[Rfam]
RNA sequence: UUAAACAUAUUGAAGAGUAGAGUACAAAAUUUAUUUUUUCAGAGAACUUCUGGUUGGUGCAAAGAAGCAAAAAGAGAUUUUGGAAGAUGGACUCGGAGUGGCAAUGGUGAAUUUUUAGCUGUUGACGUGGUUGCGGACGUUACAAUCGCAGAACUAUUCUAAUUCUGUAGUUAAUUAGAGCAGUUCGCCGAGGCAGUUUUGAUAACUGUAAAUAAAGGUGGUACCACGGGUUUACCCGUCCUUGUU
Numbered sequence: 001u002u003a004a005a006c007a008u009a010u011u012g013a014a015g016a017g018u019a020g021a022g023u024a025c026a027a028a029a030u031u032u033a034u035u036u037u038u039u040c041a042g043a044g045a046a047c048u049u050c051u052g053g054u055u056g057g058u059g060c061a062a063a064g065a066a067g068c069a070a071a072a073a074g075a076g077a078u079u080u081u082g083g084a085a086g087a088u089g090g091a092c093u094c095g096g097a098g099u100g101g102c103a104a105u106g107g108u109g110a111a112u113u114u115u116u117a118g119c120u121g122u123u124g125a126c127g128u129g130g131u132u133g134c135g136g137a138c139g140u141u142a143c144a145a146u147c148g149c150a151g152a153a154c155u156a157u158u159c160u161a162a163u164u165c166u167g168u169a170g171u172u173a174a175u176u177a178g179a180g181c182a183g184u185u186c187g188c189c190g191a192g193g194c195a196g197u198u199u200u201g202a203u204a205a206c207u208g209u210a211a212a213u214a215a216a217g218g219u220g221g222u223a224c225c226a227c228g229g230g231u232u233u234a235c236c237c238g239u240c241c242u243u244g245u246u
Stems, first nucleotide, its partner, number of pairs: 007099002015094004025082006035071003047067005102124007126139003193209006215243004226239005
About this RNA: A member of the RNA family "T-box leader" from Ligilactobacillus ubinensis, 246 nucleotides long. The base pairs follow the family's consensus structure, which is taken from published work. Rfam's curators write: Uncharged tRNA acts as the effector for transcription antitermination of genes in the T-box leader family. T-boxes are found upstream of many aminoacyl-tRNA synthetase genes and some amino acid biosynthetic genes usually in Gram-positive bacteria. A reference for the family is Grundy et al. (1994), "Interaction between the acceptor end of tRNA and the T box stimulates antitermination in the Bacillus subtilis tyrS gene: a new role for the discriminator base", J Bacteriol. The organism belongs to Ligilactobacillus, within Bacteria.